Small nucleolar RNA SNORD121A: an 81-nucleotide RNA from Macaca mulatta.
Pairs were carried over by alignment from the consensus structure, which was predicted with WAR.
On this family, see Yang et al., Nucleic Acids Res 2006: "snoSeeker: an advanced computational package for screening of guide and orphan snoRNA genes in the human genome".
[Rfam]
RNA sequence: CUGGAAAAGACAAUGAUGUUUUAUUUCCAAGCACAUAUCUGAGUUGUAUGUGUGGACAGCACUGAAACUGAGUCUUUCCAC
Numbered sequence: 001c002u003g004g005a006a007a008a009g010a011c012a013a014u015g016a017u018g019u020u021u022u023a024u025u026u027c028c029a030a031g032c033a034c035a036u037a038u039c040u041g042a043g044u045u046g047u048a049u050g051u052g053u054g055g056a057c058a059g060c061a062c063u064g065a066a067a068c069u070g071a072g073u074c075u076u077u078c079c080a081c
Base pairs, nucleotide, nucleotide: 002080003079004078005077008075009074010073011072